RNA sequence: CCUGGGGCGUUGCCCCAGGCUGGUAUAGAGCGCACCUUUGGUGCU
Numbered sequence: 001c002c003u004g005g006g007g008c009g010u011u012g013c014c015c016c017a018g019g020c021u022g023g024u025a026u027a028g029a030g031c032g033c034a035c036c037u038u039u040g041g042u043g044c045u
Base pairs, nucleotide, nucleotide: 001019002018003017004016005015006014007013008012032044033043034042035041036040
RNA: Acido-Lenti-1 RNA